[Rfam]
RNA sequence: UGGCUGCAAUAAACAUUCAUUGCUGUCGGUGGGUUUUACAUGAAAUCAACUCACUGAUCAAUGAAUGCAAACUGCGGUGCA
Numbered sequence: 001u002g003g004c005u006g007c008a009a010u011a012a013a014c015a016u017u018c019a020u021u022g023c024u025g026u027c028g029g030u031g032g033g034u035u036u037u038a039c040a041u042g043a044a045a046u047c048a049a050c051u052c053a054c055u056g057a058u059c060a061a062u063g064a065a066u067g068c069a070a071a072c073u074g075c076g077g078u079g080c081a
Stems, first nucleotide, its partner, number of pairs: 001081002004077005014067009025058007033050003
RNA: mir-181 microRNA precursor family
Organism: Anguilla anguilla